[Rfam]
RNA: Purine riboswitch aptamer
RNA sequence: CAAAAGUAAACAAAACUUUAUCAUAUAAUCCUGGUAAUAUGGUCUGGGAGUUUCUACGGAGCAACCGAUAAUUGCUCUACUAUGGACGUUGAAUGUUAGAAU
Numbered sequence: 001c002a003a004a005a006g007u008a009a010a011c012a013a014a015a016c017u018u019u020a021u022c023a024u025a026u027a028a029u030c031c032u033g034g035u036a037a038u039a040u041g042g043u044c045u046g047g048g049a050g051u052u053u054c055u056a057c058g059g060a061g062c063a064a065c066c067g068a069u070a071a072u073u074g075c076u077c078u079a080c081u082a083u084g085g086a087c088g089u090u091g092a093a094u095g096u097u098a099g100a101a102u
Stems, first nucleotide, its partner, number of pairs: 018088001021085005029049006058078007
Dot-bracket structure: .................(..(((((...((((((.........))))))........(((((((.......)))))))..)))))..)..............